[Rfam]
RNA sequence: CACAUGCUCCGGGGUCGGUGAAAAUCCGAGCCGGCGGUCACAGUCCGCGAACCUGCUCCACGUCUCCCACCGGGUGACGCGGGACGGGCCGACCUGGUGGAACUCCAGGACCGACGGUCAAAGUCCGGAUGAGAGGCGCAUGUG
Number, nucleotide and partner (000 for none) at each position: 001c000002a000003c142004a141005u140006g139007c138008u000009c136010c135011g000012g000013g000014g000015u000016c028017g027018g026019u000020g000021a000022a000023a000024a000025u000026c018027c017028g016029a000030g124031c123032c113033g112034g048035c047036g046037g045038u000039c000040a000041c000042a000043g111044u110045c037046c036047g035048c034049g000050a000051a000052c088053c087054u086055g085056c000057u000058c000059c000060a000061c000062g000063u000064c000065u000066c000067c000068c000069a000070c000071c000072g000073g000074g000075u000076g000077a000078c000079g000080c000081g000082g000083g000084a000085c055086g054087g053088g052089c000090c000091g000092a000093c109094c108095u107096g106097g105098u000099g000100g000101a000102a000103c000104u000105c097106c096107a095108g094109g093110a044111c043112c033113g032114a000115c127116g126117g125118u000119c000120a000121a000122a000123g031124u030125c117126c116127g115128g000129a000130u000131g000132a000133g000134a000135g010136g009137c000138g007139c006140a005141u004142g003143u000144g000
Background
Shown here is a 144-nucleotide RNA from Flavimobilis marinus, a member of the family "FMN riboswitch aptamer (RFN element)". Lineage of the source: Bacteria > Bacillati > Actinomycetota > Jonesiaceae > Flavimobilis. The RFN element is a highly conserved domain that is found frequently in the 5'-untranslated regions of prokaryotic mRNAs that encode for flavin mononucleotide (FMN) biosynthesis and transport proteins. This element is a metabolite-dependent riboswitch that directly binds FMN in the absence of proteins. The match comes from Rfam's covariance-model search (88 bits). A reference for the family is Winkler et al. (2002), "An mRNA structure that controls gene expression by binding FMN", Proc Natl Acad Sci U S A.